[Rfam]
RNA: FMN riboswitch aptamer (RFN element)
RNA sequence: AAGAUCCUUCGGGGCUGGGUGAAAAUCCCGACCGGCGGUGAUGGAGGUUCAUCCUCCUCAGUCCGUGACCCGCAUCAGCGGUGGAUCCGGUGCAACUCCGGAGCCGACAGUCAAAGUCUGGAUGGGAGAAGGAUAAA
Numbered sequence: 001a002a003g004a005u006c007c008u009u010c011g012g013g014g015c016u017g018g019g020u021g022a023a024a025a026u027c028c029c030g031a032c033c034g035g036c037g038g039u040g041a042u043g044g045a046g047g048u049u050c051a052u053c054c055u056c057c058u059c060a061g062u063c064c065g066u067g068a069c070c071c072g073c074a075u076c077a078g079c080g081g082u083g084g085a086u087c088c089g090g091u092g093c094a095a096c097u098c099c100g101g102a103g104c105c106g107a108c109a110g111u112c113a114a115a116g117u118c119u120g121g122a123u124g125g126g127a128g129a130a131g132g133a134u135a136a137a
Stems, first nucleotide, its partner, number of pairs: 004134007017029003031117002033106002035066004061104002070081002086102005108120003